The family of this 118-nucleotide RNA sequence from Polypterus senegalus is "Small nucleolar RNA SNORA26". Rfam's curators write: The snoRNA HBI-6 belong to the H/ACA family of snoRNAs, guiding the pseudouridylation of position U4522 if the 28S rRNA. HBI-6 is the human orthologue of mouse MBI-6 snoRNA. The organism belongs to Polypterus, within Eukaryota. Pairs were carried over by alignment from the consensus structure, which was predicted with RNAalifold. The family is grouped with related families in Rfam's "SNORA27 clan". Gene Ontology terms of the family: nucleolus and RNA processing. The family has 76 seed sequences and 1,943 matches in Rfam 15.1.

RNA sequence: UUACCCACUGGAGGCUGAUCAUGUCUUCAGUGACCAACACCAAAGGGUAGAAUAUGUUCUCUAUAAAACCCAAAACAGACUUUGUGUCUUUUUUUGGAUCCUGUCUAGAGAUACAAAA
Number, nucleotide and partner (000 for none) at each position: 001u000002u049003a048004c047005c046006c045007a000008c000009u042010g041011g000012a000013g000014g038015c000016u036017g035018a000019u033020c030021a000022u000023g000024u000025c000026u000027u000028c000029a000030g020031u000032g000033a019034c000035c017036a016037a000038c014039a000040c000041c010042a009043a000044a000045g006046g005047g004048u003049a002050g000051a000052a000053u000054a000055u000056g000057u000058u000059c110060u109061c108062u107063a106064u000065a000066a000067a000068a000069c000070c097071c096072a095073a094074a093075a092076c000077a000078g088079a087080c086081u000082u000083u000084g000085u000086g080087u079088c078089u000090u000091u000092u075093u074094u073095u072096g071097g070098a000099u000100c000101c000102u000103g000104u000105c000106u063107a062108g061109a060110g059111a000112u000113a000114c000115a000116a000117a000118a000